[Rfam]
RNA sequence: CUUUAUAGCACCUGCAUUGUACACACUGUGUGUGGGGCUGGAAUGCACAGCGCAUACAAUGUGGAUUCUGUACAA
Numbered sequence: 001c002u003u004u005a006u007a008g009c010a011c012c013u014g015c016a017u018u019g020u021a022c023a024c025a026c027u028g029u030g031u032g033u034g035g036g037g038c039u040g041g042a043a044u045g046c047a048c049a050g051c052g053c054a055u056a057c058a059a060u061g062u063g064g065a066u067u068c069u070g071u072a073c074a075a
Stems, first nucleotide, its partner, number of pairs: 012064002015061007024052001026050006
Overview
Shown here is a 75-nucleotide RNA sequence from Sylvia borin, a member of the family "mir-460 microRNA precursor family". NCBI's taxonomy places the organism under Eukaryota, Chordata, Craniata, Euteleostomi, Sylvia. Rfam 15.1 lists 1,029 matches to the family in 498 species.